Shown here is a 46-nucleotide RNA from Simonsiella muelleri, a member of the family "PreQ1 (pre queuosine) riboswitch aptamer". Rfam links the family to the GO term queuosine biosynthetic process. The organism belongs to Simonsiella muelleri, within Bacteria. This family is a bacterial riboswitch that binds to the metabolite preQ1, an intermediate in the biosynthesis of the modified nucleoside queuosine from GTP. One example of this riboswitch is located in the leader of the Bacillus subtilis ykvJKLM (queCDEF) operon which encodes four genes necessary for queuosine production. On this family, see Reader et al., J Biol Chem 2004: "Identification of four genes necessary for biosynthesis of the modified nucleoside queuosine".

RNA sequence: CAAAACGCGGUUCGCAACCCUCCCGCGAUAACAAAACUAAGGAAUU
Numbered sequence: 001c002a003a004a005a006c007g008c009g010g011u012u013c014g015c016a017a018c019c020c021u022c023c024c025g026c027g028a029u030a031a032c033a034a035a036a037c038u039a040a041g042g043a044a045u046u
Base pairs, nucleotide, nucleotide: 006027007026008025009024010023016038

Overview
Rfam 15.1 lists 873 matches to the family in 692 species.